RNA sequence: AUGCCGUAAACUUAUGACUAAACAAAAAAAUGACAGCGUGAUGCCUGAAUCCUCACUGCUAAUGUGAGACAAAUUUUUGAGCUGGUAAAGGUUUCUGCUAAGGUGACCCACCUACUUUGUGGGAUGCCUGGGAGUCACAAUCUGCUGU
Numbered sequence: 001a002u003g004c005c006g007u008a009a010a011c012u013u014a015u016g017a018c019u020a021a022a023c024a025a026a027a028a029a030a031u032g033a034c035a036g037c038g039u040g041a042u043g044c045c046u047g048a049a050u051c052c053u054c055a056c057u058g059c060u061a062a063u064g065u066g067a068g069a070c071a072a073a074u075u076u077u078u079g080a081g082c083u084g085g086u087a088a089a090g091g092u093u094u095c096u097g098c099u100a101a102g103g104u105g106a107c108c109c110a111c112c113u114a115c116u117u118u119g120u121g122g123g124a125u126g127c128c129u130g131g132g133a134g135u136c137a138c139a140a141u142c143u144g145c146u147g148u
Stems, first nucleotide, its partner, number of pairs: 007020002032051002034047003052068005083147004089143005098132002101129005107123005
RNA: U12 minor spliceosomal RNA
Organism: Odobenus rosmarus